[Rfam]
RNA sequence: AUCAACACCAACCCUAUCUCCACCUCCACGUGGUGACCGCUGGGAGCUCUUCCUUAAUGAAAAGCUGCAGAUGGAGAAGG
Numbered sequence: 001a002u003c004a005a006c007a008c009c010a011a012c013c014c015u016a017u018c019u020c021c022a023c024c025u026c027c028a029c030g031u032g033g034u035g036a037c038c039g040c041u042g043g044g045a046g047c048u049c050u051u052c053c054u055u056a057a058u059g060a061a062a063a064g065c066u067g068c069a070g071a072u073g074g075a076g077a078a079g080g
Stems, first nucleotide, its partner, number of pairs: 013080003017076001019074002022034003045066004050061002053059001
Rfam assigns this 80-nucleotide RNA sequence from Hermetia illucens to the family "drz-agam-1 ribozyme". The source organism's lineage runs through Eukaryota, Mandibulata, Pterygota, Stratiomyidae and Hermetia. On this family, see Webb et al., Science 2009: "Widespread occurrence of self-cleaving ribozymes".